[Rfam]
RNA sequence: AAGGCUUUCCCACACUCAUUACAAUGAUGUCUUUUGGAACGACCAUGGACUCUCUGAUGGUGGGUGAGGAGGAGGGCCCGA
Numbered sequence: 001a002a003g004g005c006u007u008u009c010c011c012a013c014a015c016u017c018a019u020u021a022c023a024a025u026g027a028u029g030u031c032u033u034u035u036g037g038a039a040c041g042a043c044c045a046u047g048g049a050c051u052c053u054c055u056g057a058u059g060g061u062g063g064g065u066g067a068g069g070a071g072g073a074g075g076g077c078c079c080g081a
Base pairs, nucleotide, nucleotide: 003078004077005076006075007074008073009072010071011069013066014065015064016063017062018061019060020059021058022056023055026052027051029050030049031048032047035045036044037043